[Rfam]
RNA sequence: UAUAUUCUACGGCAAACUCGUCCGAAAGGCGAGGACGCAAAGCCACAGGUCUUCCGCACAUCGAUGCGAUGACGGCUGGGUUGCAUUC
Numbered sequence: 001u002a003u004a005u006u007c008u009a010c011g012g013c014a015a016a017c018u019c020g021u022c023c024g025a026a027a028g029g030c031g032a033g034g035a036c037g038c039a040a041a042g043c044c045a046c047a048g049g050u051c052u053u054c055c056g057c058a059c060a061u062c063g064a065u066g067c068g069a070u071g072a073c074g075g076c077u078g079g080g081u082u083g084c085a086u087u088c
Stems, first nucleotide, its partner, number of pairs: 012038002017033004022029002041082004046078003049073003056067003

This 88-nucleotide RNA sequence from Paenibacillus abyssi belongs to the Rfam family "c-di-GMP-I riboswitch aptamer". The match comes from Rfam's covariance-model search (64 bits). The source organism's lineage runs through Bacteria, Bacillota, Caryophanales, Paenibacillaceae and Paenibacillus.